RNA sequence: GAAGGCAGGCAGGUGGCUGCUUGCGGUUGGUGCCGCAAGAGGAAAGUCCGGGCUGCAGUGAGGCAGGACUCCAGCUAACGGCUGGCCGAAGCGAUUCGAGGGCAAGUGCAACAGAGAGUAGACCGCCGAUGGCGGGUUUUCCCGCACAGGUAAGGGUGAAAGGGUGGGGUAAGAGCCCACCGGUGCCCCCGGUAACGGGGGCAGCCAGGUAAACCCGGUCCGCAGCAAGAAGCACCUGGUACAAGCCUCACAUCUUGUGUGCUUCGCUCGAGCCCGUCGGUGACGGCGGGCCUAGAUAAAUAGUCACCCAACGACAGAACCCGGCUUAUCGCCUGCCUUCUUUU
Numbered sequence: 001g002a003a004g005g006c007a008g009g010c011a012g013g014u015g016g017c018u019g020c021u022u023g024c025g026g027u028u029g030g031u032g033c034c035g036c037a038a039g040a041g042g043a044a045a046g047u048c049c050g051g052g053c054u055g056c057a058g059u060g061a062g063g064c065a066g067g068a069c070u071c072c073a074g075c076u077a078a079c080g081g082c083u084g085g086c087c088g089a090a091g092c093g094a095u096u097c098g099a100g101g102g103c104a105a106g107u108g109c110a111a112c113a114g115a116g117a118g119u120a121g122a123c124c125g126c127c128g129a130u131g132g133c134g135g136g137u138u139u140u141c142c143c144g145c146a147c148a149g150g151u152a153a154g155g156g157u158g159a160a161a162g163g164g165u166g167g168g169g170u171a172a173g174a175g176c177c178c179a180c181c182g183g184u185g186c187c188c189c190c191g192g193u194a195a196c197g198g199g200g201g202c203a204g205c206c207a208g209g210u211a212a213a214c215c216c217g218g219u220c221c222g223c224a225g226c227a228a229g230a231a232g233c234a235c236c237u238g239g240u241a242c243a244a245g246c247c248u249c250a251c252a253u254c255u256u257g258u259g260u261g262c263u264u265c266g267c268u269c270g271a272g273c274c275c276g277u278c279g280g281u282g283a284c285g286g287c288g289g290g291c292c293u294a295g296a297u298a299a300a301u302a303g304u305c306a307c308c309c310a311a312c313g314a315c316a317g318a319a320c321c322c323g324g325c326u327u328a329u330c331g332c333c334u335g336c337c338u339u340c341u342u343u344u
Base pairs, nucleotide, nucleotide: 001340002339003338004337005336006335007334008333009332010331011329012308013307014306015305016304017303018302020039021038022037023036024035025034026033027032044327045326046325048324049323050322051321052320053225054224055223056222066221067220068219069218070217071085072084073083074082075081086100087098088097089096090095101216102215106214107213108210109209123155124154125151126150127149132145133144134143135142136141163181164180165179166178167177168176183205184203185202186201187200188199189198190197191196229265230264231263232262239256272291273290274289275288276287277286278285279284
Dot-bracket structure: ((((((((((((((((((.((((((((....))))))))....[[[.[[[[[((((.........((((((((((.....)))))(((((....)))).)((...((((.............(((((....(((((....)))))...)))..)).......((((((.......)))))).(((((((((....)))))))).)...))..)))))))))))))...((((......(................).....))))......((((((((....))))))))..........)))))))...........]]]]]]]].).))))))))))....
Bacterial RNase P class A: a 344-nucleotide sequence from Nitratifractor salsuginis. It scores 289 bits against the family's covariance model. The base pairs follow the family's consensus structure, which is taken from published work.